[Rfam]
RNA sequence: ACAUUGCAAACUGGUGGUGGGCACGCUGAAGCGGCCUCGACCAGUCAUGUCCAAGGACUACGACCAAGCCGCCCGGAAACUGCCAGGCGGCUUUUUU
Numbered sequence: 001a002c003a004u005u006g007c008a009a010a011c012u013g014g015u016g017g018u019g020g021g022c023a024c025g026c027u028g029a030a031g032c033g034g035c036c037u038c039g040a041c042c043a044g045u046c047a048u049g050u051c052c053a054a055g056g057a058c059u060a061c062g063a064c065c066a067a068g069c070c071g072c073c074c075g076g077a078a079a080c081u082g083c084c085a086g087g088c089g090g091c092u093u094u095u096u097u
Stems, first nucleotide, its partner, number of pairs: 011044005017038001019037004024033003049058003066093008075084002
The family of this 97-nucleotide RNA sequence from Rhizobium album is "RcsR1 sRNA". Its family is annotated with sRNA-mediated gene silencing and negative regulation of translation in response to stress in the Gene Ontology. Rfam's curators write: RcsR1 (rhizobial cold and salinity stress riboregulator 1) trans-acting sRNA, formerly known as SmelC587, is a stress-related riboregulator, conserved in Sinorhizobium, Rhizobium and Agrobacterium. NCBI's taxonomy places the organism under Bacteria, Pseudomonadota, Hyphomicrobiales, Rhizobiaceae, Rhizobium. The match comes from Rfam's covariance-model search (94 bits). On this family, see Baumgardt et al., RNA Biol 2015: "The stress-related, rhizobial small RNA RcsR1 destabilizes the autoinducer synthase encoding mRNA sinI in Sinorhizobium meliloti".